[Rfam]
RNA: Small nucleolar RNA Z155
Organism: Zea mays
RNA sequence: AGUUGAUGUGAAGACGAGCCUUCACAGAAACGCAUACUUGUGUGUUGACUCGAAAAAUCAGAUUACAGUUAUCUCAUCAAAU
Numbered sequence: 001a002g003u004u005g006a007u008g009u010g011a012a013g014a015c016g017a018g019c020c021u022u023c024a025c026a027g028a029a030a031c032g033c034a035u036a037c038u039u040g041u042g043u044g045u046u047g048a049c050u051c052g053a054a055a056a057a058u059c060a061g062a063u064u065a066c067a068g069u070u071a072u073c074u075c076a077u078c079a080a081a082u
Stems, first nucleotide, its partner, number of pairs: 001082001003080004